[Rfam]
RNA: Eukaryotic small subunit ribosomal RNA, nucleotides 97 to 687
RNA sequence: CUCAUUAAAUCAGUUAUCGUUUAUUUGAUAGUACCUUACUACUUGGAUAACCGUGGUAAUUCUAGAGCUAAUACAUGCUAAAAACCCCGACUUCGGAAGGGGUGUAUUUAUUAGAUAAAAAACCAAUGCCCUUCGGGGCUCUCUGGUGAUUCAUAAUAACUUAACGAAUCGCAUGGCCUUGUGCCGGCGAUGGUUCAUUCAAAUUUCUGCCCUAUCAACUUUCGAUGGUAAGGUAUUGGCUUACCAUGGUUUCAACGGGUAACGGGGAAUAAAUCCUAGUUCUCAAUUGUUAGACAAGUCCACUUUAUAGUGGGCAACAUGCCUGUUUGCGGGGAACUCCUGUUAAGCUUACGGUACCGGAUUAGGGGUAACACCCCUAAUUUAUUGGUUAUAAUCUGUAAGAUAGGGACAGUCCGCAGCGGAUCUGGCUAAUGCUGGACCGUUCAACGCUCGCUAAGGUAUGGGCUCGUAAAGAGUUUGAGGUACGGGCUAACCCCACCGGAGAUGGUGCCCUGAGUUAAUGGUUAGGCCACAACCUCAGGGAGGCAGACGCAAGUCUUCUGGGUCAUGGGUAGGGUUCUAUUCCGGAGA
Numbered sequence: 001c002u003c004a005u006u007a008a009a010u011c012a013g014u015u016a017u018c019g020u021u022u023a024u025u026u027g028a029u030a031g032u033a034c035c036u037u038a039c040u041a042c043u044u045g046g047a048u049a050a051c052c053g054u055g056g057u058a059a060u061u062c063u064a065g066a067g068c069u070a071a072u073a074c075a076u077g078c079u080a081a082a083a084a085c086c087c088c089g090a091c092u093u094c095g096g097a098a099g100g101g102g103u104g105u106a107u108u109u110a111u112u113a114g115a116u117a118a119a120a121a122a123c124c125a126a127u128g129c130c131c132u133u134c135g136g137g138g139c140u141c142u143c144u145g146g147u148g149a150u151u152c153a154u155a156a157u158a159a160c161u162u163a164a165c166g167a168a169u170c171g172c173a174u175g176g177c178c179u180u181g182u183g184c185c186g187g188c189g190a191u192g193g194u195u196c197a198u199u200c201a202a203a204u205u206u207c208u209g210c211c212c213u214a215u216c217a218a219c220u221u222u223c224g225a226u227g228g229u230a231a232g233g234u235a236u237u238g239g240c241u242u243a244c245c246a247u248g249g250u251u252u253c254a255a256c257g258g259g260u261a262a263c264g265g266g267g268a269a270u271a272a273a274u275c276c277u278a279g280u281u282c283u284c285a286a287u288u289g290u291u292a293g294a295c296a297a298g299u300c301c302a303c304u305u306u307a308u309a310g311u312g313g314g315c316a317a318c319a320u321g322c323c324u325g326u327u328u329g330c331g332g333g334g335a336a337c338u339c340c341u342g343u344u345a346a347g348c349u350u351a352c353g354g355u356a357c358c359g360g361a362u363u364a365g366g367g368g369u370a371a372c373a374c375c376c377c378u379a380a381u382u383u384a385u386u387g388g389u390u391a392u393a394a395u396c397u398g399u400a401a402g403a404u405a406g407g408g409a410c411a412g413u414c415c416g417c418a419g420c421g422g423a424u425c426u427g428g429c430u431a432a433u434g435c436u437g438g439a440c441c442g443u444u445c446a447a448c449g450c451u452c453g454c455u456a457a458g459g460u461a462u463g464g465g466c467u468c469g470u471a472a473a474g475a476g477u478u479u480g481a482g483g484u485a486c487g488g489g490c491u492a493a494c495c496c497c498a499c500c501g502g503a504g505a506u507g508g509u510g511c512c513c514u515g516a517g518u519u520a521a522u523g524g525u526u527a528g529g530c531c532a533c534a535a536c537c538u539c540a541g542g543g544a545g546g547c548a549g550a551c552g553c554a555a556g557u558c559u560u561c562u563g564g565g566u567c568a569u570g571g572g573u574a575g576g577g578u579u580c581u582a583u584u585c586c587g588g589a590g591a
Stems, first nucleotide, its partner, number of pairs: 001590003011209003016204002020202002026197003042077001044075002051067001054064003084103005091096001108159006122147004129138003169190004174186004211259003218250003225247008263587004267580004
Dot-bracket structure: (((.......(((..((..((....(((.............(.((.....(..(((.....)))..)......)).)......(((((..(....)..)))))....((((((........((((...(((....))).....))))......)))))).........((((.((((.....))))))))....)))...))))..))).(((....(((....((((((((.......)))))))))))......)))...((((((((..................................................................................................................................................................................................................................................................................................................))))...))))))).